[Rfam]
RNA sequence: AGGGGCUUUUGGGGGCACUUGUGUUUCAGUUUCACCAUCAUAAUGCCCCUAAAAAUCCUUAU
Number, nucleotide and partner (000 for none) at each position: 001a060002g059003g058004g057005g056006c000007u054008u053009u052010u000011g050012g049013g048014g047015g046016c045017a044018c000019u000020u042021g041022u040023g039024u000025u000026u000027c000028a000029g000030u000031u000032u000033c000034a000035c000036c000037a000038u000039c023040a022041u021042a020043a000044u017045g016046c015047c014048c013049c012050u011051a000052a009053a008054a007055a000056u005057c004058c003059u002060u001061a000062u000
mir-365 microRNA precursor family: a 62-nucleotide sequence from Salmo salar. The literature on the family includes a 2009 paper in BMC Mol Biol by Jin et al., "Characterization of bovine miRNAs by sequencing and bioinformatics analysis". Rfam's curators put it in the seed alignment. Its family is annotated with miRNA-mediated post-transcriptional gene silencing and RISC complex in the Gene Ontology. Taxonomically the source falls in Salmo (Eukaryota, Craniata, Actinopterygii, Actinopteri). Rfam 15.1 lists 1,300 matches to the family in 640 species.